[Rfam]
RNA sequence: UUAAAAAUCGAUUGAUAUUACCGUAUAUGUUUGAUGAUAUGGUUCAAACGUUUCUACUAAGCAACCUAUAAUUGCUAAGCUACGGGAAUUACUUUAAUUAUG
Numbered sequence: 001u002u003a004a005a006a007a008u009c010g011a012u013u014g015a016u017a018u019u020a021c022c023g024u025a026u027a028u029g030u031u032u033g034a035u036g037a038u039a040u041g042g043u044u045c046a047a048a049c050g051u052u053u054c055u056a057c058u059a060a061g062c063a064a065c066c067u068a069u070a071a072u073u074g075c076u077a078a079g080c081u082a083c084g085g086g087a088a089u090u091a092c093u094u095u096a097a098u099u100a101u102g
Base pairs, nucleotide, nucleotide: 018088019087021085022084023083024082025081029049030048031047032046033045034044058078060076061075062074063073064072
The family of this 102-nucleotide RNA from Clostridium cylindrosporum is "Purine riboswitch aptamer". The match comes from Rfam's covariance-model search (75 bits). The base pairs follow the family's consensus structure, which is taken from published work.